[Rfam]
Guanidine-II riboswitch aptamer (mini-ykkC): a 55-nucleotide sequence from Collimonas fungivorans. The base pairs follow the family's consensus structure, which is taken from published work. From the family's description: Simpler in structure and has fewer highly conserved nucleotide positions than the ykkC-yxkD leader. Despite this each of its two stem-loop structures directly bind free guanidine. Therefore, mini-ykkC RNA motif represents a distinct class of guanidine-sensing RNAs. Its crystal structure was also determined. A search with the family's covariance model found it, with a score of 42 bits.

RNA sequence: GCGCCAGGACGACCUGGCGCUGCCGCACAUUGUAUUUCAACCGGGGACGACCCCA
Numbered sequence: 001g002c003g004c005c006a007g008g009a010c011g012a013c014c015u016g017g018c019g020c021u022g023c024c025g026c027a028c029a030u031u032g033u034a035u036u037u038c039a040a041c042c043g044g045g046g047a048c049g050a051c052c053c054c055a
Stems, first nucleotide, its partner, number of pairs: 001020008043054004